[Rfam]
RNA sequence: GGAAUCCCGCCUGGAAAGACUUAGCCAGUCACCAGUAUCCAGCCUUGGGUCUGAAGCGGUAACGUUAAGACUAAGCGUAGGUAGGAGAGGUAGUAGGCCGAAAGCGAAAGUUGAAGAUGUAGAGCCCCGAAAUCCCCAAACGGGUAUGGUCGAUGCCGUAGAACCAGCAGAAGACAACACUGGAUUGAGCGAUAAUGGCGAGCGUAAUCCAGCGCCCCGGGGUCAAAGGUCU
Numbered sequence: 001g002g003a004a005u006c007c008c009g010c011c012u013g014g015a016a017a018g019a020c021u022u023a024g025c026c027a028g029u030c031a032c033c034a035g036u037a038u039c040c041a042g043c044c045u046u047g048g049g050u051c052u053g054a055a056g057c058g059g060u061a062a063c064g065u066u067a068a069g070a071c072u073a074a075g076c077g078u079a080g081g082u083a084g085g086a087g088a089g090g091u092a093g094u095a096g097g098c099c100g101a102a103a104g105c106g107a108a109a110g111u112u113g114a115a116g117a118u119g120u121a122g123a124g125c126c127c128c129g130a131a132a133u134c135c136c137c138a139a140a141c142g143g144g145u146a147u148g149g150u151c152g153a154u155g156c157c158g159u160a161g162a163a164c165c166a167g168c169a170g171a172a173g174a175c176a177a178c179a180c181u182g183g184a185u186u187g188a189g190c191g192a193u194a195a196u197g198g199c200g201a202g203c204g205u206a207a208u209c210c211a212g213c214g215c216c217c218c219g220g221g222g223u224c225a226a227a228g229g230u231c232u
Stems, first nucleotide, its partner, number of pairs: 011035004018030004022201001024199002038086001040085001042082004046077002048072005054066002057064002122224001124223006142217003147214002149175003154169003180212008189203002
RNA: Group II catalytic intron D1-D4-6